[Rfam]
RNA sequence: GAUCCCAUGGUGUAAUGGUUAGCACUCUGGACUUUGAAUCCAGCAAUCCCAGUUCAUAUCUUGGUGGGACCU
Dot-bracket structure: (.(((((..((((........)))).(((((.......)))))....((.((.......)).))))))).).